[Rfam]
RNA sequence: CGAGCCGACCGGACGGCCGCGUCACGAGUGAUCGUGCCGAGGAAAGUCCGGACUCCACAGGGCAGGGUGGUUGCCAACGGCAACCCGGGGCGACCCGCGGGACAGUGCCACAGAAAACAGACCGCCCGGGUGCGUGCACCCGGGUAAGGGUGAAACGGCGGUGUAAGAGACCACCAGCGCGGCGGGUGACCGCAGCGGCUCGGUAAACCCCACCCGGAGCAAGGUCAAGAAGGACCGGUUCGCCGGUCCGCGCAGGCGUUCGAGGGCGGCCCGCCCGAGCCUGCGGGUAGACCGCUCGAGCCUGUCGGCGACGGCAGGCCUAGAUGGAUGGCCGUCACCCGGCACCUCGGUGCCGGGCACAGGAUCCGGCUUACAGGUCGACUCGUCCG
Numbered sequence: 001c002g003a004g005c006c007g008a009c010c011g012g013a014c015g016g017c018c019g020c021g022u023c024a025c026g027a028g029u030g031a032u033c034g035u036g037c038c039g040a041g042g043a044a045a046g047u048c049c050g051g052a053c054u055c056c057a058c059a060g061g062g063c064a065g066g067g068u069g070g071u072u073g074c075c076a077a078c079g080g081c082a083a084c085c086c087g088g089g090g091c092g093a094c095c096c097g098c099g100g101g102a103c104a105g106u107g108c109c110a111c112a113g114a115a116a117a118c119a120g121a122c123c124g125c126c127c128g129g130g131u132g133c134g135u136g137c138a139c140c141c142g143g144g145u146a147a148g149g150g151u152g153a154a155a156c157g158g159c160g161g162u163g164u165a166a167g168a169g170a171c172c173a174c175c176a177g178c179g180c181g182g183c184g185g186g187u188g189a190c191c192g193c194a195g196c197g198g199c200u201c202g203g204u205a206a207a208c209c210c211c212a213c214c215c216g217g218a219g220c221a222a223g224g225u226c227a228a229g230a231a232g233g234a235c236c237g238g239u240u241c242g243c244c245g246g247u248c249c250g251c252g253c254a255g256g257c258g259u260u261c262g263a264g265g266g267c268g269g270c271c272c273g274c275c276c277g278a279g280c281c282u283g284c285g286g287g288u289a290g291a292c293c294g295c296u297c298g299a300g301c302c303u304g305u306c307g308g309c310g311a312c313g314g315c316a317g318g319c320c321u322a323g324a325u326g327g328a329u330g331g332c333c334g335u336c337a338c339c340c341g342g343c344a345c346c347u348c349g350g351u352g353c354c355g356g357g358c359a360c361a362g363g364a365u366c367c368g369g370c371u372u373a374c375a376g377g378u379c380g381a382c383u384c385g386u387c388c389g
Stems, first nucleotide, its partner, number of pairs: 001385004006380005011374001012336007020039002023036005044372003048369005053219004060272004065215005070084005085099001086097004100210002105208002107204003122149002124145009157175002160172003177199001178197003182193004223293004252284006264276004300319008
Rfam assigns this 389-nucleotide RNA from Jatrophihabitans endophyticus to the family "Bacterial RNase P class A". It scores 288 bits against the family's covariance model. Ribonuclease P (RNase P) is a ubiquitous endoribonuclease, found in archaea, bacteria and eukarya as well as chloroplasts and mitochondria. By type it is a ribozyme.